[Rfam]
RNA sequence: CCGAAUGCCGCAACCGGGUUCGGUGGGCGCCGGGCCAGGCGCUUCGGUGCCCGUAUCCAUGUCGCUCAGAGGAGGAUGUGGCUAUGAGGA
Numbered sequence: 001c002c003g004a005a006u007g008c009c010g011c012a013a014c015c016g017g018g019u020u021c022g023g024u025g026g027g028c029g030c031c032g033g034g035c036c037a038g039g040c041g042c043u044u045c046g047g048u049g050c051c052c053g054u055a056u057c058c059a060u061g062u063c064g065c066u067c068a069g070a071g072g073a074g075g076a077u078g079u080g081g082c083u084a085u086g087a088g089g090a
Base pairs, nucleotide, nucleotide: 001023002022003021004020005019006018008017009016028049029048030047031046032045033044034043050088052086053085054084055083057081058080059079060078061077062076063075065074066073067072
The record is a 90-nucleotide RNA from Belnapia rosea, which matches "Repression of heat shock gene expression (ROSE) element" in Rfam.
This family represents a 5' UTR cis-regulatory element found in heat shock mRNAs and is known as the ROSE (repression of heat shock gene expression) element.
The family's RNA type in Rfam is RNA thermoregulator.
Pairs were carried over by alignment from the consensus structure, which is taken from published work.